[Rfam]
RNA sequence: UCCAAAUCACAUGGAAACUUUUCUGCACAAACUAGACUACUGAAACCAGUGUGCAGAGGGGCUCUUAUUGCAUUUGUA
Numbered sequence: 001u002c003c004a005a006a007u008c009a010c011a012u013g014g015a016a017a018c019u020u021u022u023c024u025g026c027a028c029a030a031a032c033u034a035g036a037c038u039a040c041u042g043a044a045a046c047c048a049g050u051g052u053g054c055a056g057a058g059g060g061g062c063u064c065u066u067a068u069u070g071c072a073u074u075u076g077u078a
Stems, first nucleotide, its partner, number of pairs: 001078001004075004011068004016063001018061012032049002
A member of the RNA family "mir-147 microRNA precursor family" from Sarcophilus harrisii, 78 nucleotides long. The family's consensus secondary structure was predicted with RNAalifold. For this family Rfam cites "Hidden layers of human small RNAs" (Kawaji et al., BMC Genomics, 2008). The source organism's lineage runs through Eukaryota, Craniata, Tetrapoda, Theria and Sarcophilus.